[Rfam]
RNA sequence: ACGGAAGCCCGGUGAGGCCAAGGUCGAUUCGGAAGAGAAGAAUCGAUCUCCCGAGCCGGGCGGCCCAGCACGGAUACCGGCACCCACGCGGAGCCACAGCCGCGAUAAUGGCAGAAGUGUUGCGGGCCUGCGUAAUUGCGAAGAGUGAACGGUUUCGACGGCCCUUUGGGUGGGGCUGCCGCCGAUCGCUUUGCAAGAUCGCCGAGGCCAACCCACGCAGCCCAGAGUUGCACGCUUGGUAACCGAGUUCCGUGCUAGCGGGCGGCGCGCCGAAGACCUUCGGAUCGUCGCCCGCUUCACAUA
Numbered sequence: 001a002c003g004g005a006a007g008c009c010c011g012g013u014g015a016g017g018c019c020a021a022g023g024u025c026g027a028u029u030c031g032g033a034a035g036a037g038a039a040g041a042a043u044c045g046a047u048c049u050c051c052c053g054a055g056c057c058g059g060g061c062g063g064c065c066c067a068g069c070a071c072g073g074a075u076a077c078c079g080g081c082a083c084c085c086a087c088g089c090g091g092a093g094c095c096a097c098a099g100c101c102g103c104g105a106u107a108a109u110g111g112c113a114g115a116a117g118u119g120u121u122g123c124g125g126g127c128c129u130g131c132g133u134a135a136u137u138g139c140g141a142a143g144a145g146u147g148a149a150c151g152g153u154u155u156c157g158a159c160g161g162c163c164c165u166u167u168g169g170g171u172g173g174g175g176c177u178g179c180c181g182c183c184g185a186u187c188g189c190u191u192u193g194c195a196a197g198a199u200c201g202c203c204g205a206g207g208c209c210a211a212c213c214c215a216c217g218c219a220g221c222c223c224a225g226a227g228u229u230g231c232a233c234g235c236u237u238g239g240u241a242a243c244c245g246a247g248u249u250c251c252g253u254g255c256u257a258g259c260g261g262g263c264g265g266c267g268c269g270c271c272g273a274a275g276a277c278c279u280u281c282g283g284a285u286c287g288u289c290g291c292c293c294g295c296u297u298c299a300c301a302u303a
Stems, first nucleotide, its partner, number of pairs: 003065002007061006016052002021049002025045006067256008078245003084239003088235003093231002099112003119221006125209005130202003136196006145189003150184004159178007258295010270283003
RNA: Mycobacterium smegmatis small RNA 1
Organism: Mycobacterium noviomagense